[Rfam]
RNase MRP: a 267-nucleotide RNA from Callosobruchus maculatus.
RNA sequence: AGAUCCUCUCAAGUCCAACCAUCGGGGUUACACACAGAGUUCUUGUAGCUCAUCCGAGUGCCCUGGGGAAGGUCCCCGGACCCGUGGUAGAAAGUACCGUCGGGUUUGCUCCCGGUAAGCCGUUGGUGCUUCUGGCGCAAGACAGGACGCCCUUUCGGGGGUCGAUCGGUACGUCGGUAUGCCAACGGUGUUUGUCAUAGCAAAGUAAUGUCUGGAGCCCGUCCUUCAUCGGACGGGUAACAUAACGGGGCCCAUUCUGAGAGGAUU
Numbered sequence: 001a002g003a004u005c006c007u008c009u010c011a012a013g014u015c016c017a018a019c020c021a022u023c024g025g026g027g028u029u030a031c032a033c034a035c036a037g038a039g040u041u042c043u044u045g046u047a048g049c050u051c052a053u054c055c056g057a058g059u060g061c062c063c064u065g066g067g068g069a070a071g072g073u074c075c076c077c078g079g080a081c082c083c084g085u086g087g088u089a090g091a092a093a094g095u096a097c098c099g100u101c102g103g104g105u106u107u108g109c110u111c112c113c114g115g116u117a118a119g120c121c122g123u124u125g126g127u128g129c130u131u132c133u134g135g136c137g138c139a140a141g142a143c144a145g146g147a148c149g150c151c152c153u154u155u156c157g158g159g160g161g162u163c164g165a166u167c168g169g170u171a172c173g174u175c176g177g178u179a180u181g182c183c184a185a186c187g188g189u190g191u192u193u194g195u196c197a198u199a200g201c202a203a204a205g206u207a208a209u210g211u212c213u214g215g216a217g218c219c220c221g222u223c224c225u226u227c228a229u230c231g232g233a234c235g236g237g238u239a240a241c242a243u244a245a246c247g248g249g250g251c252c253c254a255u256u257c258u259g260a261g262a263g264g265a266u267u
Stems, first nucleotide, its partner, number of pairs: 002267010014216004018211002022066007037051005071252002074250004086098004099116006118189001120187001122186006132177003137166001218237006
Annotation: The organism belongs to Callosobruchus, within Eukaryota.